Rfam assigns this 174-nucleotide RNA from Actinopolymorpha singaporensis to the family "SAM riboswitch aptamer (S box leader)". Lineage of the source: Bacteria > Bacillati > Actinomycetota > Actinopolymorphaceae > Actinopolymorpha.

RNA sequence: AACUCAUCCAGAGGGGCAGAGGGACCGGCCCGACGAAGCCCCGGCAACCGGCCGACCGCCGACGAGUGUGUCUCGCGUUCAUGCAGGCCCCGCGGCGGCCACGGUGCCAACUCCGGCCCACGACUCCACGUCCGGGAAGACCUCCCGACCUGGCGUACGCGGGAAAGAUGAGGA
Numbered sequence: 001a002a003c004u005c006a007u008c009c010a011g012a013g014g015g016g017c018a019g020a021g022g023g024a025c026c027g028g029c030c031c032g033a034c035g036a037a038g039c040c041c042c043g044g045c046a047a048c049c050g051g052c053c054g055a056c057c058g059c060c061g062a063c064g065a066g067u068g069u070g071u072c073u074c075g076c077g078u079u080c081a082u083g084c085a086g087g088c089c090c091c092g093c094g095g096c097g098g099c100c101a102c103g104g105u106g107c108c109a110a111c112u113c114c115g116g117c118c119c120a121c122g123a124c125u126c127c128a129c130g131u132c133c134g135g136g137a138a139g140a141c142c143u144c145c146c147g148a149c150c151u152g153g154c155g156u157a158c159g160c161g162g163g164a165a166a167g168a169u170g171a172g173g174a
Stems, first nucleotide, its partner, number of pairs: 003172006013042005021031003025116004043108004048104002050100004112166001117163003121159002